Shown here is a 368-nucleotide sequence from Phycicoccus sp. HDW14, a member of the family "transfer-messenger RNA". About the family: Bacterial tmRNA, also known as 10Sa RNA or SsrA, is named for its dual tRNA and mRNA-like properties. A search with the family's covariance model found it, with a score of 134 bits.
RNA sequence: GGGGGUGAUCGGUUUCGACAUUGGUCGGAUGUCCAGUGGGAAGCGGGUCGAGGACGCACGGUCAUCUCGUACAACGCUCCGUGCAAACCAAUAGGUGCCGAUUCCAAGCGCACCGACUUCGCCCUCGCCGCCUGAGCGAGCCCGAAGUCCGUUGGCCUAGGCUCGAUCUCGGCCUAGUCACCAGCGUCAGCUAGAGAUCUUGCUGCGUCGUCAUGCCGAGGGGCGACGCGGGACUCCCACUCGGCUGGGCCUGUCGGGGAACGUGUGCGCGCGAGCCCCGGGGCCGAGAAAAUCCACAGCGCACUGCACCCGGAGAAGCCCUGGGCUGCCGUCAGUGGACGCGGGUUCGAUUCCCGCCACCUCCACCA
Numbered sequence: 001g002g003g004g005g006u007g008a009u010c011g012g013u014u015u016c017g018a019c020a021u022u023g024g025u026c027g028g029a030u031g032u033c034c035a036g037u038g039g040g041a042a043g044c045g046g047g048u049c050g051a052g053g054a055c056g057c058a059c060g061g062u063c064a065u066c067u068c069g070u071a072c073a074a075c076g077c078u079c080c081g082u083g084c085a086a087a088c089c090a091a092u093a094g095g096u097g098c099c100g101a102u103u104c105c106a107a108g109c110g111c112a113c114c115g116a117c118u119u120c121g122c123c124c125u126c127g128c129c130g131c132c133u134g135a136g137c138g139a140g141c142c143c144g145a146a147g148u149c150c151g152u153u154g155g156c157c158u159a160g161g162c163u164c165g166a167u168c169u170c171g172g173c174c175u176a177g178u179c180a181c182c183a184g185c186g187u188c189a190g191c192u193a194g195a196g197a198u199c200u201u202g203c204u205g206c207g208u209c210g211u212c213a214u215g216c217c218g219a220g221g222g223g224c225g226a227c228g229c230g231g232g233a234c235u236c237c238c239a240c241u242c243g244g245c246u247g248g249g250c251c252u253g254u255c256g257g258g259g260a261a262c263g264u265g266u267g268c269g270c271g272c273g274a275g276c277c278c279c280g281g282g283g284c285c286g287a288g289a290a291a292a293u294c295c296a297c298a299g300c301g302c303a304c305u306g307c308a309c310c311c312g313g314a315g316a317a318g319c320c321c322u323g324g325g326c327u328g329c330c331g332u333c334a335g336u337g338g339a340c341g342c343g344g345g346u347u348c349g350a351u352u353c354c355c356g357c358c359a360c361c362u363c364c365a366c367c368a
Stems, first nucleotide, its partner, number of pairs: 001364007019337007027329001031326005038321003044312005049069005056084006123147001125145003130141002150186006157177007165199006203231009215245005248285005255280003262273002265304004271297001341357005